[Rfam]
RNA: U2 spliceosomal RNA
Organism: Terrapene triunguis
RNA sequence: UUCACUUUUUUAAACAUCUUAAUUAAUUUUUUUAAUCUGUUCUUAUCAGUUUAAUAUCUGAUAUGUCCUUUAUUUGAGGACUGUAUAUUAAAUUGAUUUUUGAAACCGGGGGGUGGAAUAGGAGCUUGCUCUGUCCAACCCAUGCAUUGACCUGGUAUUGCAAUGCCUCUGGGAACAGUGCAUCUCCU
Numbered sequence: 001u002u003c004a005c006u007u008u009u010u011u012a013a014a015c016a017u018c019u020u021a022a023u024u025a026a027u028u029u030u031u032u033u034a035a036u037c038u039g040u041u042c043u044u045a046u047c048a049g050u051u052u053a054a055u056a057u058c059u060g061a062u063a064u065g066u067c068c069u070u071u072a073u074u075u076g077a078g079g080a081c082u083g084u085a086u087a088u089u090a091a092a093u094u095g096a097u098u099u100u101u102g103a104a105a106c107c108g109g110g111g112g113g114u115g116g117a118a119u120a121g122g123a124g125c126u127u128g129c130u131c132u133g134u135c136c137a138a139c140c141c142a143u144g145c146a147u148u149g150a151c152c153u154g155g156u157a158u159u160g161c162a163a164u165g166c167c168u169c170u171g172g173g174a175a176c177a178g179u180g181c182a183u184c185u186c187c188u
Base pairs, nucleotide, nucleotide: 007022008021044063045062046061047060048059049058065081066080067079068078069077070076109141110140111139115135116134121132122131123130124129144181145180146179147178148177149176151173152172153171154170155169